[Rfam]
RNA: Alphaproteobacterial ar14
RNA sequence: GAAUUUCGUGGUUUCGCACUCCUCCUCCCGGCGAACCACGAUGGACUGGCGAUACUCCUCCUCCCGAUCGCCAGUCACUUUCCUGACGCCCACCGGUCCUCCUCCCCCGGUGGGCGUCUUCA
Numbered sequence: 001g002a003a004u005u006u007c008g009u010g011g012u013u014u015c016g017c018a019c020u021c022c023u024c025c026u027c028c029c030g031g032c033g034a035a036c037c038a039c040g041a042u043g044g045a046c047u048g049g050c051g052a053u054a055c056u057c058c059u060c061c062u063c064c065c066g067a068u069c070g071c072c073a074g075u076c077a078c079u080u081u082c083c084u085g086a087c088g089c090c091c092a093c094c095g096g097u098c099c100u101c102c103u104c105c106c107c108c109g110g111u112g113g114g115c116g117u118c119u120u121c122a
Stems, first nucleotide, its partner, number of pairs: 007040003011036002014034004044076010086117011